[Rfam]
This 67-nucleotide RNA from Nannospalax galili belongs to the Rfam family "Small nucleolar RNA SNORD109A". It scores 42 bits against the family's covariance model. Rfam links the family to the GO terms RNA processing and nucleolus. Clan: SNORD74 clan. Humans have two copies of the SNORD109 gene, SNORD109A and SNORD109B.
RNA sequence: GCCUUGAUGAUGAGUACAAAUGUCUGAGGAUGCUGAGUGACUCAUACAAAUGGUCCAGAUGUGUGGU
Numbered sequence: 001g002c003c004u005u006g007a008u009g010a011u012g013a014g015u016a017c018a019a020a021u022g023u024c025u026g027a028g029g030a031u032g033c034u035g036a037g038u039g040a041c042u043c044a045u046a047c048a049a050a051u052g053g054u055c056c057a058g059a060u061g062u063g064u065g066g067u
Base pairs, nucleotide, nucleotide: 001067002066003065005063